[Rfam]
RNA sequence: UUCUGUCACAUGAUGAAAUAUUUCGGAUGUAAAACAAUUUUAUUGUCAUUGUCCUAAAGCGCAAAACCAUGCGGAUAUUUCCGUUGCCUUCCUUCUGAUAACAGC
Numbered sequence: 001u002u003c004u005g006u007c008a009c010a011u012g013a014u015g016a017a018a019u020a021u022u023u024c025g026g027a028u029g030u031a032a033a034a035c036a037a038u039u040u041u042a043u044u045g046u047c048a049u050u051g052u053c054c055u056a057a058a059g060c061g062c063a064a065a066a067c068c069a070u071g072c073g074g075a076u077a078u079u080u081c082c083g084u085u086g087c088c089u090u091c092c093u094u095c096u097g098a099u100a101a102c103a104g105c
Stems, first nucleotide, its partner, number of pairs: 003104003024083004
The family of this 105-nucleotide RNA from Arthrobotrys flagrans is "Small nucleolar RNA Z13/snr52".
Gene Ontology terms of the family: nucleolus and RNA processing.
The family's consensus secondary structure was predicted with PFOLD.
It scores 93 bits against the family's covariance model.